[Rfam]
RNA sequence: UUCGUCGCAAGGUAAAAUCUGAAGAAAGAUGAAAACAAAAUGCAGGUCUGACGAACAGGAAGCGAUUUAGGCGGUGCGGCGGGAUAAGGUGGCUAUUAUCGUCAACGCCCAAUACUUAUACAGAAUGCUGUGACGUAGAGCCGACAGACAUAGGCAGGAAGGUCGCAUUU
Numbered sequence: 001u002u003c004g005u006c007g008c009a010a011g012g013u014a015a016a017a018u019c020u021g022a023a024g025a026a027a028g029a030u031g032a033a034a035a036c037a038a039a040a041u042g043c044a045g046g047u048c049u050g051a052c053g054a055a056c057a058g059g060a061a062g063c064g065a066u067u068u069a070g071g072c073g074g075u076g077c078g079g080c081g082g083g084a085u086a087a088g089g090u091g092g093c094u095a096u097u098a099u100c101g102u103c104a105a106c107g108c109c110c111a112a113u114a115c116u117u118a119u120a121c122a123g124a125a126u127g128c129u130g131u132g133a134c135g136u137a138g139a140g141c142c143g144a145c146a147g148a149c150a151u152a153g154g155c156a157g158g159a160a161g162g163u164c165g166c167a168u169u170u
Stems, first nucleotide, its partner, number of pairs: 001016002004013003028170002035163002041156003046149005063143002066140001071136003075132007082110002085107001088103004
RNA: Group II catalytic intron D1-D4-3
Organism: Providencia alcalifaciens